The record is a 72-nucleotide RNA sequence from Cloeon dipterum, which matches "mir-305 microRNA precursor family" in Rfam. Its family is annotated with RISC complex and miRNA-mediated post-transcriptional gene silencing in the Gene Ontology. The family's consensus secondary structure was predicted with RNAalifold.
[Rfam]
RNA sequence: CAUGUUCAUUGUACUUCAUCAGGUGCUCUGGUGUGUUUUUAUCCCGGCACCUGUCGGAGUGCAAUUGAUACG
Numbered sequence: 001c002a003u004g005u006u007c008a009u010u011g012u013a014c015u016u017c018a019u020c021a022g023g024u025g026c027u028c029u030g031g032u033g034u035g036u037u038u039u040u041a042u043c044c045c046g047g048c049a050c051c052u053g054u055c056g057g058a059g060u061g062c063a064a065u066u067g068a069u070a071c072g
Base pairs, nucleotide, nucleotide: 001072003070004069010063011062012061014059015058016057017056020053021052023050024049025048026047027046030044031043